[Rfam]
RNA: Plant signal recognition particle RNA
RNA sequence: GCCGGGCUCGGUAACGCGGGCUUGUCACCCAAGUGGGGGCAUGAAGGUAAUGGGACGUUGGAUCAGCCCACCGUGCCGGGUCUGGUGUGGCUUUCUACUGGCCUGCCCGUUCCAAGCUGAGAGUUGAGUGGUGUGAUUUGGGCGAAGGCCUGGCACACACCUCUCCUAAAGAGGAGGGUAAUGCGUGAGGCUGGCUUCACAGAGCAGCGACUACCUCCCUCUCCUGGCAGUGGAAGGAUAGCAGGCCGGUGCUACCUUGGCCCAACAUGGUCCGGUGGGCUGAUCUUAAUAGGACCAUUAUUUUU
Numbered sequence: 001g002c003c004g005g006g007c008u009c010g011g012u013a014a015c016g017c018g019g020g021c022u023u024g025u026c027a028c029c030c031a032a033g034u035g036g037g038g039g040c041a042u043g044a045a046g047g048u049a050a051u052g053g054g055a056c057g058u059u060g061g062a063u064c065a066g067c068c069c070a071c072c073g074u075g076c077c078g079g080g081u082c083u084g085g086u087g088u089g090g091c092u093u094u095c096u097a098c099u100g101g102c103c104u105g106c107c108c109g110u111u112c113c114a115a116g117c118u119g120a121g122a123g124u125u126g127a128g129u130g131g132u133g134u135g136a137u138u139u140g141g142g143c144g145a146a147g148g149c150c151u152g153g154c155a156c157a158c159a160c161c162u163c164u165c166c167u168a169a170a171g172a173g174g175a176g177g178g179u180a181a182u183g184c185g186u187g188a189g190g191c192u193g194g195c196u197u198c199a200c201a202g203a204g205c206a207g208c209g210a211c212u213a214c215c216u217c218c219c220u221c222u223c224c225u226g227g228c229a230g231u232g233g234a235a236g237g238a239u240a241g242c243a244g245g246c247c248g249g250u251g252c253u254a255c256c257u258u259g260g261c262c263c264a265a266c267a268u269g270g271u272c273c274g275g276u277g278g279g280c281u282g283a284u285c286u287u288a289a290u291a292g293g294a295c296c297a298u299u300a301u302u303u304u305u
Base pairs, nucleotide, nucleotide: 001040002039003038004023005022006021007020008019009018010017028037029036030035043305044304045303046302047301048300049299050298051297052296053295056292058289059288060287061285062284063283064282065281066280068278069277070276071275072274073273075271076270077269078263079262080261081260082259084257085256087255088254089253090252092251098249099248100247101246102245103244104243105242106241107237108236110235111234112233113232114231116228117227118226119225121223122222123221126165127164128163130161131160132159133158134157135156138153139152140151141150142149143148166171173218174217175216176215177214184209185208186207191202192201193200